The record is an 84-nucleotide sequence from Argiope bruennichi, which matches "HDV ribozyme from F. prausnitzii" in Rfam. Its family is annotated with catalytic activity in the Gene Ontology. The match comes from Rfam's covariance-model search (46 bits). The literature on the family includes a 2009 paper in Science by Webb et al., "Widespread occurrence of self-cleaving ribozymes". The source organism's lineage runs through Eukaryota, Metazoa, Bilateria, Araneae and Argiope.
RNA sequence: CGGGAACGAAAGAGCCCACCUCCACGUGGUGUUCCCUGGGCAACGGUGCAGUUUCUCUGGAAUUGCAUCGGCUAAGAGGCUACU
Number, nucleotide and partner (000 for none) at each position: 001c000002g036003g035004g034005a033006a032007c031008g000009a000010a000011a000012g000013a000014g000015c000016c000017c000018a030019c029020c028021u000022c000023c000024a000025c000026g000027u000028g020029g019030u018031g007032u006033u005034c004035c003036c002037u000038g000039g000040g000041c000042a000043a000044c070045g069046g068047u067048g066049c065050a064051g063052u062053u061054u060055c059056u000057c000058u000059g055060g054061a053062a052063u051064u050065g049066c048067a047068u046069c045070g044071g000072c000073u000074a000075a000076g000077a000078g000079g000080c000081u000082a000083c000084u000